[Rfam]
RNA: mir-9318 microRNA precursor family
Organism: Eptesicus fuscus
RNA sequence: UCACCCCCAGUGUUGACAGUGUGUGUGUCCCCAUCGGGGAGGUCACGCAUCUCUGACAUGUACUGGCAUGUGCA
Dot-bracket structure: .((...((((((.((.(((((....(.(((((...))))))......))...))).))..))))))..))....